[Rfam]
RNA sequence: GGGGCAGCGGGAAGCUCUUGCACGCGGUCCGCGCCCACGGCCGCUCAAGGCCGCGCCGAGCCCACUGGCGAGACCGACCCGCGUUGAU
Numbered sequence: 001g002g003g004g005c006a007g008c009g010g011g012a013a014g015c016u017c018u019u020g021c022a023c024g025c026g027g028u029c030c031g032c033g034c035c036c037a038c039g040g041c042c043g044c045u046c047a048a049g050g051c052c053g054c055g056c057c058g059a060g061c062c063c064a065c066u067g068g069c070g071a072g073a074c075c076g077a078c079c080c081g082c083g084u085u086g087a088u
Base pairs, nucleotide, nucleotide: 001088004085007082008081009080010079011078014061015060023055024054025053026052027051028050029049039075040074042070043069044068045067
RNA: c-di-GMP-II-GAG riboswitch aptamer